This 89-nucleotide sequence from Ramlibacter lithotrophicus belongs to the Rfam family "Glycine riboswitch aptamer".
RNA sequence: UCCGCGGCGUCAGGAGAGAGUUCCCGCGCGGAACCGCCGAAGGCGCAGGGACCACCCGAACGCUCAGGCAAAAGGACUGACGCAGUGCC
Numbered sequence: 001u002c003c004g005c006g007g008c009g010u011c012a013g014g015a016g017a018g019a020g021u022u023c024c025c026g027c028g029c030g031g032a033a034c035c036g037c038c039g040a041a042g043g044c045g046c047a048g049g050g051a052c053c054a055c056c057c058g059a060a061c062g063c064u065c066a067g068g069c070a071a072a073a074g075g076a077c078u079g080a081c082g083c084a085g086u087g088c089c
Stems, first nucleotide, its partner, number of pairs: 007083007020034004036069003039065002043063003049056002
Description:
Pairs were carried over by alignment from the consensus structure. The source organism's lineage runs through Bacteria, Pseudomonadati, Betaproteobacteria, Comamonadaceae and Ramlibacter.